Eukaryotic large subunit ribosomal RNA: a 467-nucleotide part of an RNA from Allomyces macrogynus. The family has 88 seed sequences and 107,465 matches in Rfam 15.1. Lineage of the source: Eukaryota > Blastocladiomycota > Blastocladiales > Allomyces > Allomyces macrogynus.
RNA sequence: UAGAACAAUGUAGAUAAGGGAAGUCGGCAAAUUAGAUCCGUAACUUUGGGAAAAGGAUUGGCUCUAAGGGUUGGGCUGGUUGGUGCUUGAAUUUUCUUAGUUGCAGGGCCGCGUUUACUUUGGUUUAUGCAGCCUAGCUUCUCGGAAUUUUCUUGGGCUGGCCGGCAAUUUGAACAACCAACUUAGAACUGGUACGGACAAGAGGAAUCUGACUGUCUAAUUAAAACAUAGCUUUGCGAUGGUCAGAAAGUGAUGUUGACGCAAAGUGAUUUCUGCCCAGUGCUCUGAAUGUCAAAGUGAAGAAAUUCAACCAAGCGCGGGUAAACGGCGGGAGUAACUAUGACUCUCUUAAGGUAGCCAAAUGCCUCGUCAUCUAAUUAGUGACGCGCAUGAAUGGAUUAACGAGAUUCCUACUGUCCCUAUCUACUAUCUAGCGAAACCACAGCCAAGGGAACGGGCUUGGCAAA
Numbered sequence: 001u002a003g004a005a006c007a008a009u010g011u012a013g014a015u016a017a018g019g020g021a022a023g024u025c026g027g028c029a030a031a032u033u034a035g036a037u038c039c040g041u042a043a044c045u046u047u048g049g050g051a052a053a054a055g056g057a058u059u060g061g062c063u064c065u066a067a068g069g070g071u072u073g074g075g076c077u078g079g080u081u082g083g084u085g086c087u088u089g090a091a092u093u094u095u096c097u098u099a100g101u102u103g104c105a106g107g108g109c110c111g112c113g114u115u116u117a118c119u120u121u122g123g124u125u126u127a128u129g130c131a132g133c134c135u136a137g138c139u140u141c142u143c144g145g146a147a148u149u150u151u152c153u154u155g156g157g158c159u160g161g162c163c164g165g166c167a168a169u170u171u172g173a174a175c176a177a178c179c180a181a182c183u184u185a186g187a188a189c190u191g192g193u194a195c196g197g198a199c200a201a202g203a204g205g206a207a208u209c210u211g212a213c214u215g216u217c218u219a220a221u222u223a224a225a226a227c228a229u230a231g232c233u234u235u236g237c238g239a240u241g242g243u244c245a246g247a248a249a250g251u252g253a254u255g256u257u258g259a260c261g262c263a264a265a266g267u268g269a270u271u272u273c274u275g276c277c278c279a280g281u282g283c284u285c286u287g288a289a290u291g292u293c294a295a296a297g298u299g300a301a302g303a304a305a306u307u308c309a310a311c312c313a314a315g316c317g318c319g320g321g322u323a324a325a326c327g328g329c330g331g332g333a334g335u336a337a338c339u340a341u342g343a344c345u346c347u348c349u350u351a352a353g354g355u356a357g358c359c360a361a362a363u364g365c366c367u368c369g370u371c372a373u374c375u376a377a378u379u380a381g382u383g384a385c386g387c388g389c390a391u392g393a394a395u396g397g398a399u400u401a402a403c404g405a406g407a408u409u410c411c412u413a414c415u416g417u418c419c420c421u422a423u424c425u426a427c428u429a430u431c432u433a434g435c436g437a438a439a440c441c442a443c444a445g446c447c448a449a450g451g452g453a454a455c456g457g458g459c460u461u462g463g464c465a466a467a
Base pairs, nucleotide, nucleotide: 001433002432003431004430010427011426012425013424014423015422016421018419019418020417035059036058037057038056039055044049060190061189063187064186065185066184067183068182069179070178071177072176073175075166076165077164078163079162080161081160087155089153091150094147095146096145097144099142100141103138104137106135107134108133109132111130112129113128114127117124118123191195203412204411205410206409207408208407209406210404211403214228215227216226231267232266233265234264235263236262237261238260242254243253244252245251271398272397273396275329276328277327280326281325282322283321284320285319287318290317291316292315298309299308300307301306330348331347332346333345334344335343349353369385370384371383372382373381446463447462448461449460450459